[Rfam]
RNA: pemK RNA
RNA sequence: AUAAUGAUACUCCCGCCCAGCCACAGACACAAGCAAUGGGGGCGGCUCGGAGAGAUCCUCGGAGGGGUGAGACGCCCGUGA
Numbered sequence: 001a002u003a004a005u006g007a008u009a010c011u012c013c014c015g016c017c018c019a020g021c022c023a024c025a026g027a028c029a030c031a032a033g034c035a036a037u038g039g040g041g042g043c044g045g046c047u048c049g050g051a052g053a054g055a056u057c058c059u060c061g062g063a064g065g066g067g068u069g070a071g072a073c074g075c076c077c078g079u080g081a
Base pairs, nucleotide, nucleotide: 012078013045014044015043016042017041018040046064047063048062050060051059052058065077066076067075